[Rfam]
RNA sequence: CUAACGGCUCUUUUAAGAGCCACCCAAGUUUUCCCAGAAAGAGCUG
Number, nucleotide and partner (000 for none) at each position: 001c000002u000003a000004a000005c000006g021007g020008c019009u018010c017011u016012u000013u000014u000015a000016a011017g010018a009019g008020c007021c006022a000023c000024c000025c000026a000027a000028g000029u000030u000031u000032u000033c000034c000035c000036a000037g000038a000039a000040a000041g000042a000043g000044c000045u000046g000
Shown here is a 46-nucleotide sequence from Nipponia nippon, a member of the family "Histone 3' UTR stem-loop". The family's consensus secondary structure is taken from published work. Taxonomically the source falls in Nipponia (Eukaryota, Chordata, Craniata, Aves).